[Rfam]
About this RNA:
Small nucleolar RNA snoR31/Z110/Z27: a 95-nucleotide sequence from Jatropha curcas. Its family is annotated with nucleolus and RNA processing in the Gene Ontology. This family contains several related snoRNAs including R31, Z27 and Z110. The family's consensus secondary structure was predicted with PFOLD.

RNA sequence: AUCAUCAAGUGAUGAAUCAUGGAAAAUCUUAGGACACCUUCCUACAUAGCUUCUUUAGCUAUGGAUGAGAUUAACAUUUCCGUUCUGAUGAUGAU
Numbered sequence: 001a002u003c004a005u006c007a008a009g010u011g012a013u014g015a016a017u018c019a020u021g022g023a024a025a026a027u028c029u030u031a032g033g034a035c036a037c038c039u040u041c042c043u044a045c046a047u048a049g050c051u052u053c054u055u056u057a058g059c060u061a062u063g064g065a066u067g068a069g070a071u072u073a074a075c076a077u078u079u080c081c082g083u084u085c086u087g088a089u090g091a092u093g094a095u
Base pairs, nucleotide, nucleotide: 001095002094003093004092005091006090007089